[Rfam]
RNA sequence: GGCCCGCUUGCCGAACUGUCGCCCGUCGAGGCGUGCGUUCCGGUAGCACCGGAUAGGCGGCGGGCAUCGU
Dot-bracket structure: .(((((((.(((....(((((((......)))).))).(((((.....)))))..)))))))))).....
Numbered sequence: 001g002g003c004c005c006g007c008u009u010g011c012c013g014a015a016c017u018g019u020c021g022c023c024c025g026u027c028g029a030g031g032c033g034u035g036c037g038u039u040c041c042g043g044u045a046g047c048a049c050c051g052g053a054u055a056g057g058c059g060g061c062g063g064g065c066a067u068c069g070u
Stems, first nucleotide, its partner, number of pairs: 002065007010058003017037003020033004039053005

The family of this 70-nucleotide sequence is "DUF3800-IX RNA".
The base pairs follow the family's consensus structure, which is taken from published work.
From the family's description: Actinobacteria, Firmicutes (1 example), Nitrospirae, Proteobacteria, Verrucomicrobia (1 example).
Rfam classes the family as a small RNA.